RNA sequence: CUGGCCCUGGAUUCAAGUAAUCCAGGAUAGGCUGUGGUCUGGGCAGUCAGCCUGUUCUCGGUUACUUGGUUCCAGAGCUGG
Numbered sequence: 001c002u003g004g005c006c007c008u009g010g011a012u013u014c015a016a017g018u019a020a021u022c023c024a025g026g027a028u029a030g031g032c033u034g035u036g037g038u039c040u041g042g043g044c045a046g047u048c049a050g051c052c053u054g055u056u057c058u059c060g061g062u063u064a065c066u067u068g069g070u071u072c073c074a075g076a077g078c079u080g081g
Stems, first nucleotide, its partner, number of pairs: 002080004007075005014068009024058010

Notes:
Rfam assigns this 81-nucleotide RNA from Dryobates pubescens to the family "mir-26 microRNA precursor family". The organism belongs to Dryobates, within Eukaryota. Pairs were carried over by alignment from the consensus structure, which was predicted with RNAalifold. Gene Ontology terms of the family: RISC complex and miRNA-mediated post-transcriptional gene silencing.